[Rfam]
RNA: RT-14 RNA
RNA sequence: CUUAUGAACUUUUCAGACUUAGCAAGCUAUGGCUUACUAGCAAGGACUAUUUACAUAUAGUCAGAACGUAUAGCCCGUCCUGGGACUACCAGGCAAACAUAAAAAAGGACGCUUCCGGUUAGUAGCGAGAGCGAAGGGCGGAAGCG
Numbered sequence: 001c002u003u004a005u006g007a008a009c010u011u012u013u014c015a016g017a018c019u020u021a022g023c024a025a026g027c028u029a030u031g032g033c034u035u036a037c038u039a040g041c042a043a044g045g046a047c048u049a050u051u052u053a054c055a056u057a058u059a060g061u062c063a064g065a066a067c068g069u070a071u072a073g074c075c076c077g078u079c080c081u082g083g084g085a086c087u088a089c090c091a092g093g094c095a096a097a098c099a100u101a102a103a104a105a106a107g108g109a110c111g112c113u114u115c116c117g118g119u120u121a122g123u124a125g126c127g128a129g130a131g132c133g134a135a136g137g138g139c140g141g142a143a144g145c146g
Stems, first nucleotide, its partner, number of pairs: 003055001005053004013046001019040004024035004079093004110146008119137001125132002